[Rfam]
RNA sequence: GUAGAUUUUUGGUGCGAUGUGGCUUUGUUUGAGCUUUAUAAAAGUUAGAAGUUGCAACCUAAAGAGAGUCUCUAUCUGCAAGAUUGGCUUUUAAUUAGGGCCGAUUCUUUUUGCACAUCGGUCAUUCGGGU
Numbered sequence: 001g002u003a004g005a006u007u008u009u010u011g012g013u014g015c016g017a018u019g020u021g022g023c024u025u026u027g028u029u030u031g032a033g034c035u036u037u038a039u040a041a042a043a044g045u046u047a048g049a050a051g052u053u054g055c056a057a058c059c060u061a062a063a064g065a066g067a068g069u070c071u072c073u074a075u076c077u078g079c080a081a082g083a084u085u086g087g088c089u090u091u092u093a094a095u096u097a098g099g100g101c102c103g104a105u106u107c108u109u110u111u112u113g114c115a116c117a118u119c120g121g122u123c124a125u126u127c128g129g130g131u
Stems, first nucleotide, its partner, number of pairs: 003071007018056004023051004033045004084104007
This 131-nucleotide RNA from Campylobacter geochelonis belongs to the Rfam family "purD RNA motif". Gene Ontology term of the family: regulation of gene expression. The literature on the family includes a 2007 paper in Nucleic Acids Res by Weinberg et al., "Identification of 22 candidate structured RNAs in bacteria using the CMfinder comparative genomics pipeline". Rfam classes the family as a cis-regulatory element. It scores 82 bits against the family's covariance model.